RNA sequence: CAGUGUCUUGCUUCAACAGUGUUUGAACAGGACAG
Numbered sequence: 001c002a003g004u005g006u007c008u009u010g011c012u013u014c015a016a017c018a019g020u021g022u023u024u025g026a027a028c029a030g031g032a033c034a035g
Base pairs, nucleotide, nucleotide: 001035003033004032006031007030008029010028012027013026014025015024016023017021
The record is a 35-nucleotide sequence from Oryctolagus cuniculus, which matches "Iron response element I" in Rfam. On this family, see Walden et al., Science 2006: "Structure of dual function iron regulatory protein 1 complexed with ferritin IRE-RNA". The family's RNA type in Rfam is cis-regulatory element. Gene Ontology term of the family: response to iron ion.